RNA sequence: UGCUCCGGUGUCAGGGGCGGUCUUUCCCAAGGACCACGAGGGCGAAAGAACCCCGACCAAGCCCCACCCCUCCCGCCCGCGCCGCAAACUCACUCACGCGGGUGAACAUCACCAACUCGGCUGGAUUUCGGCCCGGUUGCCUGCCUUACGCUCGCCGCAACACAACCGCAGACAUGCGACGGCCCUCGCCGGGACGCCAAUCCCAGUGCGAGGGCCUGACCACCGAGGAAGAUGAGGCCUUCCCG
Numbered sequence: 001u002g003c004u005c006c007g008g009u010g011u012c013a014g015g016g017g018c019g020g021u022c023u024u025u026c027c028c029a030a031g032g033a034c035c036a037c038g039a040g041g042g043c044g045a046a047a048g049a050a051c052c053c054c055g056a057c058c059a060a061g062c063c064c065c066a067c068c069c070c071u072c073c074c075g076c077c078c079g080c081g082c083c084g085c086a087a088a089c090u091c092a093c094u095c096a097c098g099c100g101g102g103u104g105a106a107c108a109u110c111a112c113c114a115a116c117u118c119g120g121c122u123g124g125a126u127u128u129c130g131g132c133c134c135g136g137u138u139g140c141c142u143g144c145c146u147u148a149c150g151c152u153c154g155c156c157g158c159a160a161c162a163c164a165a166c167c168g169c170a171g172a173c174a175u176g177c178g179a180c181g182g183c184c185c186u187c188g189c190c191g192g193g194a195c196g197c198c199a200a201u202c203c204c205a206g207u208g209c210g211a212g213g214g215c216c217u218g219a220c221c222a223c224c225g226a227g228g229a230a231g232a233u234g235a236g237g238c239c240u241u242c243c244c245g
Stems, first nucleotide, its partner, number of pairs: 007224004016077004090105006120156001122154003181216005187210003191204004227243005
Shown here is a 245-nucleotide RNA from Streptomyces dysideae, a member of the family "Streptomyces sRNA 4677".
A search with the family's covariance model found it, with a score of 234 bits.
About the family: Located in the intergenic region between anti-sigma factor SCO4677 gene and a putative regulatory protein gene SCO4676. scr4677 expression requires the SCO4677 activity and scr4677 sRNA itself seem to affect the levels of the SCO4676-associated transcripts.
The base pairs follow the family's consensus structure.
Rfam 15.1 lists 563 matches to the family in 285 species.
Taxonomically the source falls in Streptomyces (Bacteria, Bacillati, Kitasatosporales, Streptomycetaceae).
A reference for the family is Hindra et al. (2014), "Complex intra-operonic dynamics mediated by a small RNA in Streptomyces coelicolor", PLoS One.